[Rfam]
Nucleotides: 072
Stems, first nucleotide, its partner, number of pairs: 003070004012061007022050008
Number, partner (000 for none) and nucleotide at each position: 001000g002000g003070c004069u005068g006067u007000g008000a009000u010000a011000u012061u013060g014059u015058c016057c017056u018055g019000u020000c021000a022050c023049a024048g025047c026046a027045g028044u029043a030000c031000u032000g033000a034000u035000u036000u037000u038000a039000u040000a041000g042000u043029u044028a045027c046026u047025g048024c049023u050022g051000c052000u053000u054000u055018c056017g057016g058015g059014a060013c061012a062000u063000u064000g065000c066000u067006a068005c069004a070003g071000a072000c

The record is a 72-nucleotide RNA sequence from Phyllotreta striolata, which matches "mir-1000 microRNA precursor family" in Rfam.
The match comes from Rfam's covariance-model search (73 bits).
Taxonomically the source falls in Phyllotreta (Eukaryota, Pterygota, Neoptera, Eumetabola).